[Rfam]
RNA sequence: CGCUUAUCAAGAGCGAGGGAGGGACUGGCCCGAUGAACUCCGGCAACCUGCUUCAUUUAGCAAGGUGCCAAUUCCAGCAAAAUGGAUUCCAUUUUGGAAGAUAAGAC
Numbered sequence: 001c002g003c004u005u006a007u008c009a010a011g012a013g014c015g016a017g018g019g020a021g022g023g024a025c026u027g028g029c030c031c032g033a034u035g036a037a038c039u040c041c042g043g044c045a046a047c048c049u050g051c052u053u054c055a056u057u058u059a060g061c062a063a064g065g066u067g068c069c070a071a072u073u074c075c076a077g078c079a080a081a082a083u084g085g086a087u088u089c090c091a092u093u094u095u096g097g098a099a100g101a102u103a104a105g106a107c
Base pairs, nucleotide, nucleotide: 003105004104005103006102007101008100013041015040016039017038021031022030023029025077026076027075028074042069043068044067045066047065048064049062050061051060052059073099078096079095080094081093082092083091
RNA: SAM riboswitch aptamer (S box leader)
Organism: Geobacillus thermodenitrificans